[Rfam]
RNA: MIR476 microRNA precursor family
RNA sequence: GCUAGUAAUUCUUCUUUGCAAAAUCAUUAAUUAUCCUAGCUCUAAUUACUAUAAUUAAUGGCUUUGCAAAGAUAGAUUUACUAGCUAAAUCU
Numbered sequence: 001g002c003u004a005g006u007a008a009u010u011c012u013u014c015u016u017u018g019c020a021a022a023a024u025c026a027u028u029a030a031u032u033a034u035c036c037u038a039g040c041u042c043u044a045a046u047u048a049c050u051a052u053a054a055u056u057a058a059u060g061g062c063u064u065u066g067c068a069a070a071g072a073u074a075g076a077u078u079u080a081c082u083a084g085c086u087a088a089a090u091c092u
Stems, first nucleotide, its partner, number of pairs: 001085008010076003013072010024061011